[Rfam]
The record is a 143-nucleotide RNA sequence, which matches "SAM-I/IV (S-adenosyl methionine) riboswitch aptamer" in Rfam.

Nucleotides: 143
Base pairs, nucleotide, nucleotide: 006102007101008100009099010098015039017038018037019036020035021034022033023032024031025030040068041067042066045064046063047062048060049059050058052139053138054137055136056135104127105126106125
Number, partner (000 for none) and nucleotide at each position: 001000c002000c003000c004000c005000g006102a007101c008100a009099u010098c011000c012000g013000g014000a015039g016000a017038g018037a019036c020035c021034c022033g023032u024031c025030g026000c027000u028000u029000g030025c031024g032023g033022c034021g035020g036019g037018u038017c039015c040068g041067g042066c043000a044000a045064c046063c047062u048060g049059g050058g051000g052139g053138a054137g055136c056135a057000u058050c059049c060048c061000g062047a063046g064045g065000u066042g067041c068040c069000a070000u071000c072000u073000u074000c075000g076000c077000c078000g079000a080000g081000g082000c083000g084000u085000g086000c087000u088000c089000g090000g091000c092000g093000g094000u095000a096000g097000a098010g099009a100008u101007g102006u103000g104127g105126c106125g107000g108000a109000g110000g111000g112000c113000c114000u115000c116000g117000c118000g119000g120000c121000c122000c123000u124000g125106c126105g127104c128000a129000a130000c131000g132000a133000a134000g135056u136055g137054c138053u139052c140000c141000g142000c143000g